[Rfam]
The family of this 564-nucleotide part of an RNA from Trichloromonas acetexigens is "Bacterial large subunit ribosomal RNA". Gene Ontology terms of the family: ribosome and structural constituent of ribosome. Clan: LSU clan. A search with the family's covariance model found it, with a score of 2999 bits. The family's consensus secondary structure is taken from published work.
RNA sequence: UAUUAAGGGCGUACGGUGGAUGCCUUGGCAUCGGGAGGCGAUGAAGGACGUGGUAAGCUGCGAAAAGCUUCGGUAAGCCGCUAAACAGGCUAUGACCCGGAGAUGUCCGAAUGGGGAAACCCGGCAGGGAUUAAGCCCUGUCAUCCUACACUGAAUCCAUAGGUGUAGGAGGCGAACUCAGGGAACUGAAACAUCUAAGUACCUGAAGGAGAAGAAAUCAAUUGAGAUUCCGUCAGUAGCGGCGAGCGAAAGCGGAAGAGCCCAAACCGAAGUUACUACGGUGACUUCGGGGUUGUGGGACCCCAACGUGGGAUUGACGAAAGGUAGUUGAAGGCUCUGGAAAGUGCCGCCAUAGCGGGUGACAGCCCCGUAAACGAAACCUUGACUCACCCUAGGGAGUUCCCAAGUACCACGGGACACGUGAAAUCCCGUGGGAAUCAGGGUGGACCAUCAUCCAAGGCUAAAUACUCCCCGAUGACCGAUAGCGCAUAGUACCGUGAGGGAAAGGUGAAAAGAACUCCAAUGAGGAGAGUGAAAUAGAACCUGAAACCGUGCGCCUACAAG
Numbered sequence: 001u002a003u004u005a006a007g008g009g010c011g012u013a014c015g016g017u018g019g020a021u022g023c024c025u026u027g028g029c030a031u032c033g034g035g036a037g038g039c040g041a042u043g044a045a046g047g048a049c050g051u052g053g054u055a056a057g058c059u060g061c062g063a064a065a066a067g068c069u070u071c072g073g074u075a076a077g078c079c080g081c082u083a084a085a086c087a088g089g090c091u092a093u094g095a096c097c098c099g100g101a102g103a104u105g106u107c108c109g110a111a112u113g114g115g116g117a118a119a120c121c122c123g124g125c126a127g128g129g130a131u132u133a134a135g136c137c138c139u140g141u142c143a144u145c146c147u148a149c150a151c152u153g154a155a156u157c158c159a160u161a162g163g164u165g166u167a168g169g170a171g172g173c174g175a176a177c178u179c180a181g182g183g184a185a186c187u188g189a190a191a192c193a194u195c196u197a198a199g200u201a202c203c204u205g206a207a208g209g210a211g212a213a214g215a216a217a218u219c220a221a222u223u224g225a226g227a228u229u230c231c232g233u234c235a236g237u238a239g240c241g242g243c244g245a246g247c248g249a250a251a252g253c254g255g256a257a258g259a260g261c262c263c264a265a266a267c268c269g270a271a272g273u274u275a276c277u278a279c280g281g282u283g284a285c286u287u288c289g290g291g292g293u294u295g296u297g298g299g300a301c302c303c304c305a306a307c308g309u310g311g312g313a314u315u316g317a318c319g320a321a322a323g324g325u326a327g328u329u330g331a332a333g334g335c336u337c338u339g340g341a342a343a344g345u346g347c348c349g350c351c352a353u354a355g356c357g358g359g360u361g362a363c364a365g366c367c368c369c370g371u372a373a374a375c376g377a378a379a380c381c382u383u384g385a386c387u388c389a390c391c392c393u394a395g396g397g398a399g400u401u402c403c404c405a406a407g408u409a410c411c412a413c414g415g416g417a418c419a420c421g422u423g424a425a426a427u428c429c430c431g432u433g434g435g436a437a438u439c440a441g442g443g444u445g446g447a448c449c450a451u452c453a454u455c456c457a458a459g460g461c462u463a464a465a466u467a468c469u470c471c472c473c474g475a476u477g478a479c480c481g482a483u484a485g486c487g488c489a490u491a492g493u494a495c496c497g498u499g500a501g502g503g504a505a506a507g508g509u510g511a512a513a514a515g516a517a518c519u520c521c522a523a524u525g526a527g528g529a530g531a532g533u534g535a536a537a538u539a540g541a542a543c544c545u546g547a548a549a550c551c552g553u554g555c556g557c558c559u560a561c562a563a564g
Base pairs, nucleotide, nucleotide: 007559008558009557010556011555012554013553014552015551016550022544023508024507027480028479029477030476031475032474033473034472035471036469037468038173039172046108047107048106049062050061051060068102069101070100071099072098073097077090078089079088113122114121115120123142124141125140126139127138128137129136144170145169146168147167148166149165150164151163152162177208178206179205180204181203182202188195189194218225219224228465229256230255231254232253233252239247240246259462260461261460262459267290268289269288270287271286272285273284297404298403299402302397303396304395315389316388317387321383322382323381324380325379327375328374329373333348334347335346337344351355357369358368359367410434411433412432413431414430415429416428417427441456442455443454444453445452495502496501518530519529520528521527